[Rfam]
RNA sequence: AUAUCAGGGGAUCGCCCUCCGUCAGCGCGUCGCGCCCACGGGGGCGCUACUG
Number, nucleotide and partner (000 for none) at each position: 001a000002u000003a000004u000005c000006a000007g000008g000009g000010g000011a000012u000013c000014g000015c000016c044017c043018u042019c041020c040021g039022u038023c000024a000025g035026c034027g033028c032029g000030u000031c000032g028033c027034g026035c025036c000037c000038a022039c021040g020041g019042g018043g017044g016045c000046g000047c000048u000049a000050c000051u000052g000
RNA: ffh sRNA
Organism: Roseobacter sp. CCS2